MIR403 microRNA precursor family: a 106-nucleotide RNA from Theobroma umbraticum. It scores 78 bits against the family's covariance model. The family has 13 seed sequences and 215 matches in Rfam 15.1.
Nucleotides: 106
Base pairs, nucleotide, nucleotide: 001104002103003102005100006099007098011094012093013092014091015090016089017088018087019086020085021084022083023082024081025080026079028077029076030075032071033070043061045059
Number, partner (000 for none) and nucleotide at each position: 001104g002103c003102a004000g005100a006099u007098u008000u009000c010000a011094g012093g013092u014091u015090u016089g017088u018087g019086c020085g021084u022083g023082a024081a025080u026079u027000u028077a029076a030075u031000a032071a033070a034000a035000c036000c037000g038000u039000a040000a041000g042000c043061c044000a045059c046000a047000a048000a049000a050000a051000u052000c053000u054000g055000g056000a057000a058000g059045g060000c061043g062000g063000a064000u065000u066000u067000a068000g069000u070033u071032u072000c073000a074000u075030g076029u077028u078000a079026g080025a081024u082023u083022c084021a085020c086019g087018c088017a089016c090015a091014a092013a093012c094011u095000c096000g097000u098007a099006a100005u101000c102003u103002g104001u105000c106000u